[Rfam]
Shown here is a 574-nucleotide part of an RNA from Fannyhessea vaginae, a member of the family "Bacterial large subunit ribosomal RNA". Lineage of the source: Bacteria > Actinomycetota > Coriobacteriales > Fannyhessea > Fannyhessea vaginae.
RNA sequence: UGGUAAGGGCACACGGUGGAUGCCUUGGCACAGGAAGCCGAUGAAGGACGUGACAAGCUGCGAUAAGCUACGGUUAGGGGCACAUACCCGCUUGACCCGUAGAUUUCCGAAUGGGUAAACCUAAUAAGAGUCAUUUCUUAUUACAGUGCGUUGAACACAUAGACGCAUCUGAGACAACCUGGGGAACUGAAACAUCUAAGUACCCAGAGGAAAAUAAAUCAAACGAGAUUCCGCUAGUAGUGGCGAGCGAACGCGGAUAAGGGCCAAACCACAGGUUGCGAAAGCUCUUGUGGGGUUGUAGGGUCACAAAUUGUACAGUAAGAAAAUUUCUUAGAAGCAAAACGGUCUGGGAAGGCCGGCAAGAUAGGGUAAAAGCCCCGUACGCGAAUCUAAGAAAUCUGUCUUGUGAUACCUGAGUACUGCCGGACACGUGAAACCCGGUGGGAAUCUGGGGGGACCACCCUCCAAGCCUAAAUACUCUCCUGUGACCGAUAGUGAACCAGUACCGUGAGGGAAAGGUGAAAAGCACCCCGGAAGGGGAGUGAAAUAGUACCUGAAACCGUGUGCUUACAAG
Numbered sequence: 001u002g003g004u005a006a007g008g009g010c011a012c013a014c015g016g017u018g019g020a021u022g023c024c025u026u027g028g029c030a031c032a033g034g035a036a037g038c039c040g041a042u043g044a045a046g047g048a049c050g051u052g053a054c055a056a057g058c059u060g061c062g063a064u065a066a067g068c069u070a071c072g073g074u075u076a077g078g079g080g081c082a083c084a085u086a087c088c089c090g091c092u093u094g095a096c097c098c099g100u101a102g103a104u105u106u107c108c109g110a111a112u113g114g115g116u117a118a119a120c121c122u123a124a125u126a127a128g129a130g131u132c133a134u135u136u137c138u139u140a141u142u143a144c145a146g147u148g149c150g151u152u153g154a155a156c157a158c159a160u161a162g163a164c165g166c167a168u169c170u171g172a173g174a175c176a177a178c179c180u181g182g183g184g185a186a187c188u189g190a191a192a193c194a195u196c197u198a199a200g201u202a203c204c205c206a207g208a209g210g211a212a213a214a215u216a217a218a219u220c221a222a223a224c225g226a227g228a229u230u231c232c233g234c235u236a237g238u239a240g241u242g243g244c245g246a247g248c249g250a251a252c253g254c255g256g257a258u259a260a261g262g263g264c265c266a267a268a269c270c271a272c273a274g275g276u277u278g279c280g281a282a283a284g285c286u287c288u289u290g291u292g293g294g295g296u297u298g299u300a301g302g303g304u305c306a307c308a309a310a311u312u313g314u315a316c317a318g319u320a321a322g323a324a325a326a327u328u329u330c331u332u333a334g335a336a337g338c339a340a341a342a343c344g345g346u347c348u349g350g351g352a353a354g355g356c357c358g359g360c361a362a363g364a365u366a367g368g369g370u371a372a373a374a375g376c377c378c379c380g381u382a383c384g385c386g387a388a389u390c391u392a393a394g395a396a397a398u399c400u401g402u403c404u405u406g407u408g409a410u411a412c413c414u415g416a417g418u419a420c421u422g423c424c425g426g427a428c429a430c431g432u433g434a435a436a437c438c439c440g441g442u443g444g445g446a447a448u449c450u451g452g453g454g455g456g457a458c459c460a461c462c463c464u465c466c467a468a469g470c471c472u473a474a475a476u477a478c479u480c481u482c483c484u485g486u487g488a489c490c491g492a493u494a495g496u497g498a499a500c501c502a503g504u505a506c507c508g509u510g511a512g513g514g515a516a517a518g519g520u521g522a523a524a525a526g527c528a529c530c531c532c533g534g535a536a537g538g539g540g541a542g543u544g545a546a547a548u549a550g551u552a553c554c555u556g557a558a559a560c561c562g563u564g565u566g567c568u569u570a571c572a573a574g
Base pairs, nucleotide, nucleotide: 007569008568009567010566011565012564013563014562015561016560022554023519024518027490028489029487030486031485032484033483034482035481036479037478039173046108047107048106049062050061051060068102069101070100071099072098073097077089078088079087113122114121115120123142124141125140126139127138128137129136144171145170146169147167148166149165150164151163152162178209179207180206181205182204183203189196190195219226220225229475230257231256232255233254234253240248241247261472262471263470264469269293270292271291272290273289274288275287300414301413302412305408306407307406308405309404324400326398327397328396329395330394331393332392333391334390335389337385338384343358344357345356346355347354361365367379368378369377420444421443422442423441424440425439426438451466452465453464454463455462506513507512529540530539531538532537